[Rfam]
A member of the RNA family "RNA S.aureus Orsay G" from Staphylococcus sp. HGB0015, 154 nucleotides long. By type it is a small RNA. The family's consensus secondary structure is taken from published work. A reference for the family is Marchais et al. (2010), "RsaOG, a new staphylococcal family of highly transcribed non-coding RNA", RNA Biol. NCBI's taxonomy places the organism under Bacteria, Bacillati, Bacilli, Caryophanales, Staphylococcus.
RNA sequence: GGGAUGGUACACAGCAUAUUCAAAAAGGGGUAGCUAUCGUGAUUGAUAGUAAAGUUUGAAAAUGAUAGGUUGUACUUAUUCUAGUUUAACAUCUUCAAUAUUUAUUACUUACUUUCCUUUCUAUGCCGGUUGGUUAAAUCCAACCGGUUUUCUU
Numbered sequence: 001g002g003g004a005u006g007g008u009a010c011a012c013a014g015c016a017u018a019u020u021c022a023a024a025a026a027g028g029g030g031u032a033g034c035u036a037u038c039g040u041g042a043u044u045g046a047u048a049g050u051a052a053a054g055u056u057u058g059a060a061a062a063u064g065a066u067a068g069g070u071u072g073u074a075c076u077u078a079u080u081c082u083a084g085u086u087u088a089a090c091a092u093c094u095u096c097a098a099u100a101u102u103u104a105u106u107a108c109u110u111a112c113u114u115u116c117c118u119u120u121c122u123a124u125g126c127c128g129g130u131u132g133g134u135u136a137a138a139u140c141c142a143a144c145c146g147g148u149u150u151u152c153u154u
Base pairs, nucleotide, nucleotide: 001082002081003080004079005078012072013071014070015069017067018066019065020064024120025119026118027117028116029115030114125148126147127146128145129144130143131142132141133140